Description: This 76-nucleotide RNA from Papaver nudicaule belongs to the Rfam family "small nucleolar RNA snoR117".
RNA sequence: AGCCAAUGAUGUUAUAUAUUGUCCGUACCAUCUGAGAUCUCCUCGUUGAUGAGUCUUUAAACAAUUUCUGAGGCUA
Numbered sequence: 001a002g003c004c005a006a007u008g009a010u011g012u013u014a015u016a017u018a019u020u021g022u023c024c025g026u027a028c029c030a031u032c033u034g035a036g037a038u039c040u041c042c043u044c045g046u047u048g049a050u051g052a053g054u055c056u057u058u059a060a061a062c063a064a065u066u067u068c069u070g071a072g073g074c075u076a
Base pairs, nucleotide, nucleotide: 001075002074003073004072
The family's consensus secondary structure was predicted with RNAalifold. Rfam links the family to the GO terms nucleolus and RNA processing. The family's RNA type in Rfam is C/D-box small nucleolar RNA. On this family, see Chen and Wu, Nucleic Acids Res 2009: "Mining small RNA sequencing data: a new approach to identify small nucleolar RNAs in Arabidopsis". The organism belongs to Papaver, within Eukaryota.